Rfam assigns this 499-nucleotide part of an RNA from Daucus carota to the family "Archaeal large subunit ribosomal RNA". The organism belongs to Daucus carota, within Eukaryota. A search with the family's covariance model found it, with a score of 1067 bits.
[Rfam]
RNA sequence: UGGAACAAUGUAGGCAAGGGAAGUCGGCAAAAUGGAUCCGUAACUUCGGGAAAAGGAUUGGCUCUGAGGGCUGGGCACGGGGGUCCCAGUCCCGAACCCGUGCGCUGCCGGUGGACUGCUUGAGCUGCUCCCGCGGCGAGAGCGGGUUGCCGCGUGCCGGCUGGGGGACGGCUGGGAAUGGUUCCUUCGGGGCCUUCCCCGGGCGUCGAACAGUCGACUCCGAACUGGUACGGACAAGGGGAAUCCGACUGUUUAAUAAAACAAAGCAUUGCGAUGUCCCUGCGGUGCUACGCAAUGUGAUUUCUGCCCCAGUGCUCUGAAUGUCAAAGUGAAGAAAUUCAACCAAGCCGGGUAACGGCGGGAGUAACUAUGACUCUCUUAAGGUAGCCAAAUGCCUCGUCAUCUAAUUAGUGACGCGCAUGAAUGGAUUAACGAGAUUCCCACGUCCCUGUCUUACUAUCCAGCGAAACCACAGCCAAGGGAACGGGCCUUGGCAGAA
Number, nucleotide and partner (000 for none) at each position: 001u463002g462003g461004a460005a000006c000007a000008a000009u000010g457011u456012a455013g453014g452015c451016a450017a000018g448019g447020g446021a000022a000023g000024u000025c000026g000027g000028c000029a000030a000031a000032a000033u000034g000035g059036a058037u057038c056039c055040g000041u000042a000043a000044c049045u000046u000047c000048g000049g044050g000051a000052a000053a000054a000055g039056g038057a037058u036059u035060g226061g225062c000063u223064c222065u000066g220067a219068g218069g000070g000071c000072u000073g000074g000075g000076c000077a000078c000079g000080g000081g000082g000083g000084u000085c000086c000087c000088a000089g000090u000091c000092c000093c000094g000095a000096a000097c000098c000099c000100g000101u000102g000103c000104g000105c000106u000107g000108c000109c000110g000111g000112u000113g000114g000115a000116c000117u000118g000119c000120u000121u000122g000123a000124g000125c000126u000127g000128c000129u000130c000131c000132c000133g000134c000135g000136g000137c000138g000139a000140g000141a000142g000143c000144g000145g000146g000147u000148u000149g000150c000151c000152g000153c000154g000155u000156g000157c000158c000159g000160g000161c000162u000163g000164g000165g000166g000167g000168a000169c000170g000171g000172c000173u000174g000175g000176g000177a000178a000179u000180g000181g000182u000183u000184c000185c000186u000187u000188c000189g000190g000191g000192g000193c000194c000195u000196u000197c000198c000199c000200c000201g000202g000203g000204c000205g000206u000207c000208g000209a000210a000211c000212a000213g000214u000215c000216g000217a000218c068219u067220c066221c000222g064223a063224a000225c061226u060227g231228g000229u000230a000231c227232g000233g000234a000235c000236a000237a000238g000239g442240g441241g440242a439243a438244u437245c436246c434247g433248a000249c000250u263251g262252u261253u000254u000255a000256a000257u000258a000259a000260a000261a252262c251263a250264a000265a000266g298267c297268a296269u295270u294271g293272c292273g291274a000275u000276g000277u285278c284279c000280c000281u000282g000283c000284g278285g277286u000287g000288c000289u000290a000291c273292g272293c271294a270295a269296u268297g267298u266299g000300a000301u000302u428303u427304c426305u000306g359307c358308c357309c000310c000311a000312g356313u355314g353315c352316u000317c351318u350319g349320a000321a000322u000323g348324u347325c000326a000327a000328a000329g000330u341331g340332a339333a338334g000335a000336a000337a000338u333339u332340c331341a330342a000343c000344c000345a000346a000347g324348c323349c319350g318351g317352g315353u314354a000355a313356c312357g308358g307359c306360g378361g377362g376363a375364g374365u373366a000367a000368c000369u000370a000371u000372g000373a365374c364375u363376c362377u361378c360379u383380u000381a000382a000383g379384g000385u000386a000387g000388c000389c000390a000391a000392a000393u000394g000395c000396c000397u000398c000399g415400u414401c413402a412403u411404c000405u000406a000407a000408u000409u000410a000411g403412u402413g401414a400415c399416g000417c000418g000419c000420a000421u000422g000423a000424a000425u000426g304427g303428a302429u000430u000431a000432a000433c247434g246435a000436g245437a244438u243439u242440c241441c240442c239443a000444c000445g000446u020447c019448c018449c000450u016451g015452u014453c013454u000455u012456a011457c010458u000459a000460u004461c003462c002463a001464g000465c000466g000467a000468a000469a000470c000471c000472a000473c000474a000475g000476c494477c493478a492479a491480g490481g000482g000483a000484a000485c000486g000487g000488g000489c000490c480491u479492u478493g477494g476495c000496a000497g000498a000499a000